RNA: Eukaryotic large subunit ribosomal RNA, nucleotides 1856 to 2365
RNA sequence: UAGAACAAUGUAGAUAAGGGAAGUCGGCAAAAUAGAUCCGUAACUUCGGGAAAAGGAUUGGCUCUAAGGAUUGGGUGCGUUGGGCCUCUGGCAGAUGCAUCGGGAGCAGACAGCCACUAGCCGGGCAACCGGCCGGCGGCAGUCAGCAUCUGGUGUCUGACGCCUUUGGCAGGCUUCGGCCGUCCGGCGCACAGUUAACAAUCAACUUAGAACUGGUACGGACAGGGGGAAUCUGACUGUCUAAUUAAAACAUAGCAUUGCGAUGGCCAGAAAGUGGUGUUGACGCAAUGUGAUUUCUGCCCAGUGCUCUGAAUGUCAAAGUGAAGAAAUUCAACCAAGCGCGGGUAAACGGCGGGAGUAACUAUGACUCUCUUAAGGUAGCCAAAUGCCUCGUCAUCUAAUUAGUGACGCGCAUGAAUGGAUUAACGAGAUUCCCACUGUCCCUAUCUACUAUCUAGCGAAACCACAGCCAAGGGAACGGGCUUGGCAGAAUCAGCGGGGAAAGAAGAC
Numbered sequence: 001u002a003g004a005a006c007a008a009u010g011u012a013g014a015u016a017a018g019g020g021a022a023g024u025c026g027g028c029a030a031a032a033u034a035g036a037u038c039c040g041u042a043a044c045u046u047c048g049g050g051a052a053a054a055g056g057a058u059u060g061g062c063u064c065u066a067a068g069g070a071u072u073g074g075g076u077g078c079g080u081u082g083g084g085c086c087u088c089u090g091g092c093a094g095a096u097g098c099a100u101c102g103g104g105a106g107c108a109g110a111c112a113g114c115c116a117c118u119a120g121c122c123g124g125g126c127a128a129c130c131g132g133c134c135g136g137c138g139g140c141a142g143u144c145a146g147c148a149u150c151u152g153g154u155g156u157c158u159g160a161c162g163c164c165u166u167u168g169g170c171a172g173g174c175u176u177c178g179g180c181c182g183u184c185c186g187g188c189g190c191a192c193a194g195u196u197a198a199c200a201a202u203c204a205a206c207u208u209a210g211a212a213c214u215g216g217u218a219c220g221g222a223c224a225g226g227g228g229g230a231a232u233c234u235g236a237c238u239g240u241c242u243a244a245u246u247a248a249a250a251c252a253u254a255g256c257a258u259u260g261c262g263a264u265g266g267c268c269a270g271a272a273a274g275u276g277g278u279g280u281u282g283a284c285g286c287a288a289u290g291u292g293a294u295u296u297c298u299g300c301c302c303a304g305u306g307c308u309c310u311g312a313a314u315g316u317c318a319a320a321g322u323g324a325a326g327a328a329a330u331u332c333a334a335c336c337a338a339g340c341g342c343g344g345g346u347a348a349a350c351g352g353c354g355g356g357a358g359u360a361a362c363u364a365u366g367a368c369u370c371u372c373u374u375a376a377g378g379u380a381g382c383c384a385a386a387u388g389c390c391u392c393g394u395c396a397u398c399u400a401a402u403u404a405g406u407g408a409c410g411c412g413c414a415u416g417a418a419u420g421g422a423u424u425a426a427c428g429a430g431a432u433u434c435c436c437a438c439u440g441u442c443c444c445u446a447u448c449u450a451c452u453a454u455c456u457a458g459c460g461a462a463a464c465c466a467c468a469g470c471c472a473a474g475g476g477a478a479c480g481g482g483c484u485u486g487g488c489a490g491a492a493u494c495a496g497c498g499g500g501g502a503a504a505g506a507a508g509a510c
Base pairs, nucleotide, nucleotide: 001457002456003455004454010451011450012449013448014447015446016445018443019442020441035059036058037057038056039055044049060214061213063211064210065209066208067207068206069203070202071201072200073199075192076191077190078189079188080187081186082185083184084170085169086168090164091163097156098155099154100153101152102151103150104149106147107146109144110143111142113140114139115138117136118135120133121132122131123130124129215219227436228435229434230433231432232431233430234428235427238252239251240250255291256290257289258288259287260286261285262284266278267277268276269275295422296421297420299353300352301351304350305349306346307345308344309343311342314341315340316339322333323332324331325330354372355371356370357369358368359367373377393409394408395407396406397405470487471486472485473484474483